[Rfam]
RNA sequence: UGGCCGGCUAGGGCCGUACACCCGAAAGCGCGGCGACUCCACCGCGCCCGCCGGCCAACCUUAUAUGGAGU
Numbered sequence: 001u002g003g004c005c006g007g008c009u010a011g012g013g014c015c016g017u018a019c020a021c022c023c024g025a026a027a028g029c030g031c032g033g034c035g036a037c038u039c040c041a042c043c044g045c046g047c048c049c050g051c052c053g054g055c056c057a058a059c060c061u062u063a064u065a066u067g068g069a070g071u
Stems, first nucleotide, its partner, number of pairs: 001057008011023003028047005036071006
Rfam assigns this 71-nucleotide sequence from Halomonas cerina to the family "int-alpA RNA".
From the family's description: Acidobacteria (1 example), Planctomycetes (1 example), Proteobacteria.
The match comes from Rfam's covariance-model search (37 bits).
By type it is a small RNA.
The base pairs follow the family's consensus structure, which is taken from published work.
The organism belongs to Halomonas, within Bacteria.